Record summary
This 138-nucleotide sequence from Dyella dinghuensis belongs to the Rfam family "Molybdenum/Tungsten riboswitch aptamer (Moco RNA motif)". Rfam 15.1 lists 1,248 matches to the family in 836 species. Its family is annotated with molybdenum ion binding, tungstate binding and regulation of gene expression in the Gene Ontology.

RNA sequence: CCGUACCCACAACUCCGAGGCGUCAUGCCUGGGUUCCUUCGGGAAUACGGUUUGACGUCCGUGGUUUUCGGACCACCAGGGUAAACGUGGAAACACGUUUGCCUCCCCGCUUUGGAAAGGAGCACAGACCAUGUCCCC
Numbered sequence: 001c002c003g004u005a006c007c008c009a010c011a012a013c014u015c016c017g018a019g020g021c022g023u024c025a026u027g028c029c030u031g032g033g034u035u036c037c038u039u040c041g042g043g044a045a046u047a048c049g050g051u052u053u054g055a056c057g058u059c060c061g062u063g064g065u066u067u068u069c070g071g072a073c074c075a076c077c078a079g080g081g082u083a084a085a086c087g088u089g090g091a092a093a094c095a096c097g098u099u100u101g102c103c104u105c106c107c108c109g110c111u112u113u114g115g116a117a118a119g120g121a122g123c124a125c126a127g128a129c130c131a132u133g134u135c136c137c138c
Stems, first nucleotide, its partner, number of pairs: 003132002013122004019059007027051003033046004061076005079104011105115002